[Rfam]
RNA: Group II catalytic intron D1-D4-3
Organism: Marinilabilia salmonicolor
RNA sequence: UUUACCGUGAGGUAUGCAGUGAAGGAAGCCAACCGGCAAAAGUCUGUACUGACGGACAGGUAUUACAGGAUUAGCAUAUGCUGUAAGGCGCAUAUGAGGCAUGAUUGUUUGGGUAAGCAAGCACAUCAUUGUAAAGCCCAAAGAACACCAAAAGGACAGUUAUGUAGAUGCGACAGGAAUAGACUGAAGGAUAAAGCU
Numbered sequence: 001u002u003u004a005c006c007g008u009g010a011g012g013u014a015u016g017c018a019g020u021g022a023a024g025g026a027a028g029c030c031a032a033c034c035g036g037c038a039a040a041a042g043u044c045u046g047u048a049c050u051g052a053c054g055g056a057c058a059g060g061u062a063u064u065a066c067a068g069g070a071u072u073a074g075c076a077u078a079u080g081c082u083g084u085a086a087g088g089c090g091c092a093u094a095u096g097a098g099g100c101a102u103g104a105u106u107g108u109u110u111g112g113g114u115a116a117g118c119a120a121g122c123a124c125a126u127c128a129u130u131g132u133a134a135a136g137c138c139c140a141a142a143g144a145a146c147a148c149c150a151a152a153a154g155g156a157c158a159g160u161u162a163u164g165u166a167g168a169u170g171c172g173a174c175a176g177g178a179a180u181a182g183a184c185u186g187a188a189g190g191a192u193a194a195a196g197c198u
Stems, first nucleotide, its partner, number of pairs: 001016001003014004028198001030196001037190001041185006047178001049176003089172005099165003103161007111139004117132004
Dot-bracket structure: (.((((....)))).)...........(.(......(...(((((((.(((.....................................(((((.....(((.(((((((.((((..((((........))))...))))...............))))))).)))..))))).))).).))))))....).....).)